[Rfam]
RNA sequence: GAACCAUGGGGUCGGGUCGUUCUGCCUGGCGGAGUGACCUAGGGGUACAGGGAGUGCCUCCGUCGUCGGACCGGGUUCUGUGACGC
Numbered sequence: 001g002a003a004c005c006a007u008g009g010g011g012u013c014g015g016g017u018c019g020u021u022c023u024g025c026c027u028g029g030c031g032g033a034g035u036g037a038c039c040u041a042g043g044g045g046u047a048c049a050g051g052g053a054g055u056g057c058c059u060c061c062g063u064c065g066u067c068g069g070a071c072c073g074g075g076u077u078c079u080g081u082g083a084c085g086c
Stems, first nucleotide, its partner, number of pairs: 001078005010072004014040005020034006042060007